A member of the RNA family "RNase MRP" from Triplophysa rosa, 254 nucleotides long.
The base pairs follow the family's consensus structure, which is taken from published work.
Rfam links the family to the GO terms rRNA processing, ribonuclease MRP activity and ribonuclease MRP complex.
RNase MRP is an enzymatically active ribonucleoprotein with two distinct roles in eukaryotes. In mitochondria it plays a direct role in the initiation of mitochondrial DNA replication. In the nucleus it is involved in precursor rRNA processing, where it cleaves the internal transcribed spacer 1 between 18S and 5.8S rRNAs.
RNA sequence: GCGCAUGCCUGAAAACUUGUAUCCUAAGCUACGUACUGGGAACCUCGUUUCGCCAUCAUUGCUUAGGGGAAAGUCCCCGGACAUUGGGCAGAGAUGUCCUGCAUACUGCGCAGAACGGUUGCUUGCGUAGCGUACCCAUGCUAAGACGUCUGUGACCGAGCUGUACGCCUGCAAGCCCGGCUUGUCAAUACACAUAGUUACGCAAGUGUAGUACCACGUUACUUCAACAGAACGGGGCUCAUUCUCAGCGUGCG
Numbered sequence: 001g002c003g004c005a006u007g008c009c010u011g012a013a014a015a016c017u018u019g020u021a022u023c024c025u026a027a028g029c030u031a032c033g034u035a036c037u038g039g040g041a042a043c044c045u046c047g048u049u050u051c052g053c054c055a056u057c058a059u060u061g062c063u064u065a066g067g068g069g070a071a072a073g074u075c076c077c078c079g080g081a082c083a084u085u086g087g088g089c090a091g092a093g094a095u096g097u098c099c100u101g102c103a104u105a106c107u108g109c110g111c112a113g114a115a116c117g118g119u120u121g122c123u124u125g126c127g128u129a130g131c132g133u134a135c136c137c138a139u140g141c142u143a144a145g146a147c148g149u150c151u152g153u154g155a156c157c158g159a160g161c162u163g164u165a166c167g168c169c170u171g172c173a174a175g176c177c178c179g180g181c182u183u184g185u186c187a188a189u190a191c192a193c194a195u196a197g198u199u200a201c202g203c204a205a206g207u208g209u210a211g212u213a214c215c216a217c218g219u220u221a222c223u224u225c226a227a228c229a230g231a232a233c234g235g236g237g238c239u240c241a242u243u244c245u246c247a248g249c250g251u252g253c254g
Stems, first nucleotide, its partner, number of pairs: 002254007011246002015207006023067007038053001040051003072239002075237004087098004099113004104108001116179002121176006130168004140161002148156003210223004